[Rfam]
RNA: SAM riboswitch aptamer (S box leader)
RNA sequence: UUCUUAUCUAGAGCGGUGGAGGGACUGGCCCAAUGAAACCCGGCAACCAUCUAUACUUCUAUAGAAAGGUGCUAAAUCCAGCAAACAGUUGAACUGUUUGGGAGAUAAGAG
Numbered sequence: 001u002u003c004u005u006a007u008c009u010a011g012a013g014c015g016g017u018g019g020a021g022g023g024a025c026u027g028g029c030c031c032a033a034u035g036a037a038a039c040c041c042g043g044c045a046a047c048c049a050u051c052u053a054u055a056c057u058u059c060u061a062u063a064g065a066a067a068g069g070u071g072c073u074a075a076a077u078c079c080a081g082c083a084a085a086c087a088g089u090u091g092a093a094c095u096g097u098u099u100g101g102g103a104g105a106u107a108a109g110a111g
Base pairs, nucleotide, nucleotide: 001111002110003109004108005107006106007105008104013041015040016039017038021031022030023029025081026080027079028078042073043072044071045070047069048068050065051064052063053062077103082100083099084098085097086096087095